[Rfam]
Rfam assigns this 142-nucleotide RNA from Ceratodon purpureus to the family "MIR904 microRNA precursor family". The base pairs follow the family's consensus structure, which was predicted with RNAalifold. The organism belongs to Ceratodon, within Eukaryota.
RNA sequence: GUUGUGAUGCUAAUGCGGUCUUGUCAAUGUUUAGGGGCAAAGGCCUGACUAUGCAAGAUGCUUCCUUGUGAGUUUUUACUUGCAAAAGUGCUGCUGUCGGCCUUCACCCCUAAAUCUUGGCAAGACCUAAUUGACACACAAC
Dot-bracket structure: .(((((.((.((((..(((((((((((.(((((((((...(((.((...((.(((..........((((((((....))))))))......)))))..)))))...))))))))).)))))))))))..)))).))))))).
Numbered sequence: 001g002u003u004g005u006g007a008u009g010c011u012a013a014u015g016c017g018g019u020c021u022u023g024u025c026a027a028u029g030u031u032u033a034g035g036g037g038c039a040a041a042g043g044c045c046u047g048a049c050u051a052u053g054c055a056a057g058a059u060g061c062u063u064c065c066u067u068g069u070g071a072g073u074u075u076u077u078a079c080u081u082g083c084a085a086a087a088g089u090g091c092u093g094c095u096g097u098c099g100g101c102c103u104u105c106a107c108c109c110c111u112a113a114a115u116c117u118u119g120g121c122a123a124g125a126c127c128u129a130a131u132u133g134a135c136a137c138a139c140a141a142c
Stems, first nucleotide, its partner, number of pairs: 002141005008136002011133004017127011029115009041103003045100002050096002053094003066085008